[Rfam]
RNA sequence: GGUCGGUGAUGGUCGGGGUGAUGAAGUGGACGUGGCAGUCGAUGCCGCCCGCGGUCAGCACCCGGCCGUUGCCCGCCAGCACCUCCGUGGACGGGCCGAUGACCAGCGCCGGGUCCACCCCGUCCAUGGUGUCGGGGUUGCCCGCCUUGCCGAUGCCGACGAUCCGGCCGUCGCGCACGCCGACGUCGGCCUUGACCACGCCCCAGUGGUCGAGGAUGACCGCGCCGGUGAUGACCAGGUCGGGGGCGCCCUCGGCGCGGGUGGCCCGGGCCUGGCCCAUCGACUCGCGGAU
Numbered sequence: 001g002g003u004c005g006g007u008g009a010u011g012g013u014c015g016g017g018g019u020g021a022u023g024a025a026g027u028g029g030a031c032g033u034g035g036c037a038g039u040c041g042a043u044g045c046c047g048c049c050c051g052c053g054g055u056c057a058g059c060a061c062c063c064g065g066c067c068g069u070u071g072c073c074c075g076c077c078a079g080c081a082c083c084u085c086c087g088u089g090g091a092c093g094g095g096c097c098g099a100u101g102a103c104c105a106g107c108g109c110c111g112g113g114u115c116c117a118c119c120c121c122g123u124c125c126a127u128g129g130u131g132u133c134g135g136g137g138u139u140g141c142c143c144g145c146c147u148u149g150c151c152g153a154u155g156c157c158g159a160c161g162a163u164c165c166g167g168c169c170g171u172c173g174c175g176c177a178c179g180c181c182g183a184c185g186u187c188g189g190c191c192u193u194g195a196c197c198a199c200g201c202c203c204c205a206g207u208g209g210u211c212g213a214g215g216a217u218g219a220c221c222g223c224g225c226c227g228g229u230g231a232u233g234a235c236c237a238g239g240u241c242g243g244g245g246g247c248g249c250c251c252u253c254g255g256c257g258c259g260g261g262u263g264g265c266c267c268g269g270g271c272c273u274g275g276c277c278c279a280u281c282g283a284c285u286c287g288c289g290g291a292u
Base pairs, nucleotide, nucleotide: 001292003290006288007287008286009285010162012160013159014158015157016156017073018072019071020070021069022068028049029048031047032046034045054066055065056064075150078147079146082144087141088140089139090138092136094133095132096131104128105127106125108123109122111120112119167276168275169274170273173271174270176268179265180263189223190222193219203212226260228258233253234252238250239249
This 292-nucleotide RNA sequence from Actinokineospora spheciospongiae belongs to the Rfam family "5' ureB small RNA". Taxonomically the source falls in Actinokineospora (Bacteria, Actinomycetota, Actinomycetes, Pseudonocardiaceae). A search with the family's covariance model found it, with a score of 56 bits.